[Rfam]
RNA: Small nucleolar RNA ACA64
Organism: Rhinolophus ferrumequinum
RNA sequence: GUUAGUUGAAAAUCACUUGCGGCUUUGGCUGUAGCCGUGGGUGAGAUUCGGCGCCCAGAGCCUCCAGGGGCCUCAGCUCACCGCCCACCUCUCCGUGUGGGGAGGUGAAACCCAGGCCCCAACACGC
Numbered sequence: 001g002u003u004a005g006u007u008g009a010a011a012a013u014c015a016c017u018u019g020c021g022g023c024u025u026u027g028g029c030u031g032u033a034g035c036c037g038u039g040g041g042u043g044a045g046a047u048u049c050g051g052c053g054c055c056c057a058g059a060g061c062c063u064c065c066a067g068g069g070g071c072c073u074c075a076g077c078u079c080a081c082c083g084c085c086c087a088c089c090u091c092u093c094c095g096u097g098u099g100g101g102g103a104g105g106u107g108a109a110a111c112c113c114a115g116g117c118c119c120c121a122a123c124a125c126g127c
Stems, first nucleotide, its partner, number of pairs: 005052006013044004021036004067120001069118005078108005086099003